[Rfam]
RNA sequence: GCGUGGGACACCUCUCCCCAACGAGAGGCUACUAUCUGGAAGGGUAGACUUA
Numbered sequence: 001g002c003g004u005g006g007g008a009c010a011c012c013u014c015u016c017c018c019c020a021a022c023g024a025g026a027g028g029c030u031a032c033u034a035u036c037u038g039g040a041a042g043g044g045u046a047g048a049c050u051u052a
Base pairs, nucleotide, nucleotide: 011028012027013026014025015024016023032047033046034045035044036043037042
Dot-bracket structure: ..........((((((......))))))...((((((....)))))).....

Description:
Shown here is a 52-nucleotide RNA from Oricola thermophila, a member of the family "serC leader". For this family Rfam cites "Evidence for a second class of S-adenosylmethionine riboswitches and other regulatory RNA motifs in alpha-proteobacteria" (Corbino et al., Genome Biol, 2005). It is annotated as a cis-regulatory leader.